[Rfam]
RNA sequence: AUCCAAGGUGAUUCCCUCUCCAAGGGGCCUACUAGUGCCCCUCUCAGGGAAGUAGCAACUUGGAAUGCAAUCUGGCUUGGCUAAGGUCUUCAAGGGACAGGGGACACUUACUUAUUUUGCCUUCCUUUGGCUGCCUAUAUGU
Dot-bracket structure: .((((((.((........(((.((((((........))))))....)))......)).))))))..........(..(.(....(......(.(((..............))).).......)....).).)..........
RNA: Small nucleolar RNA SNORA67